RNA sequence: AAGUGUUCAAUAGGGGCAACCUAAGAUCAUAUGUAUGACGUUUUUUUUAUUUUAAUAAUUUUUGUAAUUGUGAUACAUAUGUUCUCAGGUCGCCCCUGUUGAACUAUU
Numbered sequence: 001a002a003g004u005g006u007u008c009a010a011u012a013g014g015g016g017c018a019a020c021c022u023a024a025g026a027u028c029a030u031a032u033g034u035a036u037g038a039c040g041u042u043u044u045u046u047u048u049a050u051u052u053u054a055a056u057a058a059u060u061u062u063u064g065u066a067a068u069u070g071u072g073a074u075a076c077a078u079a080u081g082u083u084c085u086c087a088g089g090u091c092g093c094c095c096c097u098g099u100u101g102a103a104c105u106a107u108u
Stems, first nucleotide, its partner, number of pairs: 007102002011098004016093002019090001024085003028081005
RNA: MIR398 microRNA precursor family